Source information:
A member of the RNA family "S. pyogenes small RNA 779816" from Streptococcus phage Javan367, 83 nucleotides long. NCBI's taxonomy places the organism under Viruses, Duplodnaviria, Heunggongvirae, Uroviricota, Caudoviricetes. The match comes from Rfam's covariance-model search (72 bits). The literature on the family includes a 2016 paper in RNA Biol by Le Rhun et al., "RNA sequencing uncovers antisense RNAs and novel small RNAs in Streptococcus pyogenes".
RNA sequence: GUAAAGAGGGCUUUUUAAUGCCUCUUACUAUACAGAUCGCCUCACGCUCAGAGUCGCCAAACUUUGAGAGCGUGGGGCUUUUU
Numbered sequence: 001g002u003a004a005a006g007a008g009g010g011c012u013u014u015u016u017a018a019u020g021c022c023u024c025u026u027a028c029u030a031u032a033c034a035g036a037u038c039g040c041c042u043c044a045c046g047c048u049c050a051g052a053g054u055c056g057c058c059a060a061a062c063u064u065u066g067a068g069a070g071c072g073u074g075g076g077g078c079u080u081u082u083u
Base pairs, nucleotide, nucleotide: 005026006025008023009022010021011020039078040077041076042075043074044073045072046071047070048069049068050065051064052063053062054061